[Rfam]
The record is a 151-nucleotide sequence from Granulicatella adiacens, which matches "glmS glucosamine-6-phosphate activated ribozyme aptamer" in Rfam. Taxonomically the source falls in Granulicatella adiacens (Bacteria, Bacilli, Lactobacillales, Carnobacteriaceae). The family's consensus secondary structure is taken from published work.
RNA sequence: GCGACAAGGAUAGCGCCAGGCCUGUUUUAAAAAACGGGUGACGAGGAAUGAGUUUAUCGAAAUACUCGGCGGAUGACUCAAGGCAGUGCAGUCUACAGCUACAUACAAACCAUUUUGUAAGGAAAUGACAAAAUUGAUAGCACGCACCAGA
Dot-bracket structure: ...................((((((((....)))))))).........(((((...((((.....))))......)))))((((......))))...((((((.......((((((....).))))).......)).))))..........